[Rfam]
RNA sequence: CGCUUACCACCAUGUUCCGCUGACACCCGUCAGCAGCAUGCCCAGGCAGUCUCGAUCUUCAAGACUGCGAUGCGGUUCCGACCGCGCUGAUCACCCAGUUCGCUCCGGCAUCCCAGCGCGAACGGCCAUCGGUUCUCCCGAUGGUGAUGC
Numbered sequence: 001c002g003c004u005u006a007c008c009a010c011c012a013u014g015u016u017c018c019g020c021u022g023a024c025a026c027c028c029g030u031c032a033g034c035a036g037c038a039u040g041c042c043c044a045g046g047c048a049g050u051c052u053c054g055a056u057c058u059u060c061a062a063g064a065c066u067g068c069g070a071u072g073c074g075g076u077u078c079c080g081a082c083c084g085c086g087c088u089g090a091u092c093a094c095c096c097a098g099u100u101c102g103c104u105c106c107g108g109c110a111u112c113c114c115a116g117c118g119c120g121a122a123c124g125g126c127c128a129u130c131g132g133u134u135c136u137c138c139c140g141a142u143g144g145u146g147a148u149g150c
Base pairs, nucleotide, nucleotide: 011040012039013038014037016035019034020033021032022031023030024029046068047067048066049065050064051063054092055091056090057089069088071086072085073084074083075082118150119149120148125145126144127143128142129141130140131139132138
Dot-bracket structure: ..........((((.(..((((((....))))))).)))).....((((((..[[[[.....))))))(.(((((......))))).)]]]].........................(((....((((((((.....))))))))..)))